[Rfam]
Rfam assigns this 136-nucleotide RNA sequence from Dryobates pubescens to the family "Small nucleolar RNA SNORA31". The match comes from Rfam's covariance-model search (51 bits). The base pairs follow the family's consensus structure, which was predicted with RNAalifold. The family's RNA type in Rfam is H/ACA-box small nucleolar RNA. The literature on the family includes a 2001 paper in EMBO J by Huttenhofer et al., "RNomics: an experimental approach that identifies 201 candidates for novel, small, non-messenger RNAs in mouse". Rfam links the family to the GO terms nucleolus and RNA processing. The source organism's lineage runs through Eukaryota, Amniota, Sauria, Archosauria and Dryobates.
RNA sequence: AGGCAUCUGGUUGACAGCCCUGGAGCAAACGGCCUUUGCUGCCUGGGUUCUUGCUGAGAUGCAACAGUAACAGGUUCCUUGCGCUUUCUGCCUGCCUGACCUUGUGGCAGUCUGGAUUGAAUGAAGGAACACAAAC
Numbered sequence: 001a002g003g004c005a006u007c008u009g010g011u012u013g014a015c016a017g018c019c020c021u022g023g024a025g026c027a028a029a030c031g032g033c034c035u036u037u038g039c040u041g042c043c044u045g046g047g048u049u050c051u052u053g054c055u056g057a058g059a060u061g062c063a064a065c066a067g068u069a070a071c072a073g074g075u076u077c078c079u080u081g082c083g084c085u086u087u088c089u090g091c092c093u094g095c096c097u098g099a100c101c102u103u104g105u106g107g108c109a110g111u112c113u114g115g116a117u118u119g120a121a122u123g124a125a126g127g128a129a130c131a132c133a134a135a136c
Stems, first nucleotide, its partner, number of pairs: 003062006012053002016049005024040006076128005084119001087116004092110005